[Rfam]
RNA sequence: CUAAUAAAUAAGCCGAAUCUUCUUAAGGGAGUACGGGGGACACACAUCACAUAUGGGGUUAAUCUGUGAAGAAAUUUUUAUACAAGGAAGGUCACCUCUACCUAACCCGACAGCUAACCUCGGAGGCUUGAAUAAGGAGGAAAC
Dot-bracket structure: ..........((((....((.........))..(((((....((.........))(((.....((.(................)))...(..........)....))).........)))))..))))................
Shown here is a 144-nucleotide sequence from Clostridium sp. N3C, a member of the family "c-di-AMP riboswitch aptamer (ydaO/yuaA leader)". Taxonomically the source falls in Clostridium (Bacteria, Bacillati, Bacillota, Eubacteriales). Rfam links the family to the GO terms cyclic-di-AMP binding and regulation of gene expression. It scores 73 bits against the family's covariance model.